Shown here is a 150-nucleotide sequence from Carlito syrichta, a member of the family "U12 minor spliceosomal RNA".
The source organism's lineage runs through Eukaryota, Opisthokonta, Eumetazoa, Primates and Carlito.
The literature on the family includes a 1997 paper in Trends Biochem Sci by Tarn and Steitz, "Pre-mRNA splicing: the discovery of a new spliceosome doubles the challenge".
Its Rfam clan is "U2 clan".
Rfam links the family to the GO terms mRNA branch site recognition, U12 snRNP and pre-mRNA branch point binding.
It scores 102 bits against the family's covariance model.
RNA sequence: AUGCCUUAAACGUAUGAGUAAGGAAAAUAAUGAUACAAGGUGACACCCAAAUCCUCACUGCUAAUGUGAGACAAAUUUUUGAGCGGGUAAAUGUUGCCCGUAAGGUGACCUGCCUACUUUGUAGGAUGCCUGGGAGUCAUGCUCUGCCCA
Numbered sequence: 001a002u003g004c005c006u007u008a009a010a011c012g013u014a015u016g017a018g019u020a021a022g023g024a025a026a027a028u029a030a031u032g033a034u035a036c037a038a039g040g041u042g043a044c045a046c047c048c049a050a051a052u053c054c055u056c057a058c059u060g061c062u063a064a065u066g067u068g069a070g071a072c073a074a075a076u077u078u079u080u081g082a083g084c085g086g087g088u089a090a091a092u093g094u095u096g097c098c099c100g101u102a103a104g105g106u107g108a109c110c111u112g113c114c115u116a117c118u119u120u121g122u123a124g125g126a127u128g129c130c131u132g133g134g135a136g137u138c139a140u141g142c143u144c145u146g147c148c149c150a
Base pairs, nucleotide, nucleotide: 004023005022006021007020008019032053033052034051039046054070055069056068057067058066085149086148087147088146091145093143095141096140101133103131104130105129106128107127109125110124111123112122113121